A member of the RNA family "mir-181 microRNA precursor family" from Cyprinus carpio, 81 nucleotides long.
RNA sequence: UGACUGCAAUAAACAUUCAUUGCUGUCGGUGGGUUUUAAAUUGACACAACUCACUGAUCAAUGAAUGCAAACUGCGGUGCA
Numbered sequence: 001u002g003a004c005u006g007c008a009a010u011a012a013a014c015a016u017u018c019a020u021u022g023c024u025g026u027c028g029g030u031g032g033g034u035u036u037u038a039a040a041u042u043g044a045c046a047c048a049a050c051u052c053a054c055u056g057a058u059c060a061a062u063g064a065a066u067g068c069a070a071a072c073u074g075c076g077g078u079g080c081a
Base pairs, nucleotide, nucleotide: 001081002080004077005076006075007074008073014067015066016065017064018063019062020061021060022059025058026057027056028055029054030053031052033050034049035048

The family's consensus secondary structure was predicted with PFOLD. For this family Rfam cites "New microRNAs from mouse and human" (Lagos-Quintana et al., RNA, 2003). Rfam links the family to the GO terms miRNA-mediated post-transcriptional gene silencing and RISC complex. The source organism's lineage runs through Eukaryota, Euteleostomi, Neopterygii, Cyprininae and Cyprinus.